This 301-nucleotide RNA from Pelagibacterales bacterium SAG-MED04 belongs to the Rfam family "Alphaproteobacteria transfer-messenger RNA". Gene Ontology term of the family: RNA catabolic process.
[Rfam]
RNA sequence: GUUAUUGAAUCUGUUGUAAUUCCUUUUAUAUUAAUAAUGUUGGUUUUCCAACUACGACGAUAAACGAAUUUCGUAAUAACCAUUGCGGACGUGGGGGCAGUACCCACCACCUCCACCAUUGCAACUUAUGGGGGUGAACUAGAUUCGACGAAUGUCUAAAGGCUAUUCUUUCGUUCGGGAUUGUUCCACCGUGACGGGCUAAUUUAUAAUUGCUAACGAAAGUUACGCACUUGCUGCCUAAUUAACUUAGUUAAUUAAGCAAACGGGGUUCGGGGCACCUGGCAACAGAACGCCCCCUAAU
Numbered sequence: 001g002u003u004a005u006u007g008a009a010u011c012u013g014u015u016g017u018a019a020u021u022c023c024u025u026u027u028a029u030a031u032u033a034a035u036a037a038u039g040u041u042g043g044u045u046u047u048c049c050a051a052c053u054a055c056g057a058c059g060a061u062a063a064a065c066g067a068a069u070u071u072c073g074u075a076a077u078a079a080c081c082a083u084u085g086c087g088g089a090c091g092u093g094g095g096g097g098c099a100g101u102a103c104c105c106a107c108c109a110c111c112u113c114c115a116c117c118a119u120u121g122c123a124a125c126u127u128a129u130g131g132g133g134g135u136g137a138a139c140u141a142g143a144u145u146c147g148a149c150g151a152a153u154g155u156c157u158a159a160a161g162g163c164u165a166u167u168c169u170u171u172c173g174u175u176c177g178g179g180a181u182u183g184u185u186c187c188a189c190c191g192u193g194a195c196g197g198g199c200u201a202a203u204u205u206a207u208a209a210u211u212g213c214u215a216a217c218g219a220a221a222g223u224u225a226c227g228c229a230c231u232u233g234c235u236g237c238c239u240a241a242u243u244a245a246c247u248u249a250g251u252u253a254a255u256u257a258a259g260c261a262a263a264c265g266g267g268g269u270u271c272g273g274g275g276c277a278c279c280u281g282g283c284a285a286c287a288g289a290a291c292g293c294c295c296c297c298u299a300a301u
Base pairs, nucleotide, nucleotide: 039052040051041050042049043048056175057174058173059172060171066168067167068166069165072162081154082153083152086150087149091107092106093105094104095103108136109135110134111133112132113131114130176191177190178189181201183199185198186197187196266280267279268278269277272297273296274295275294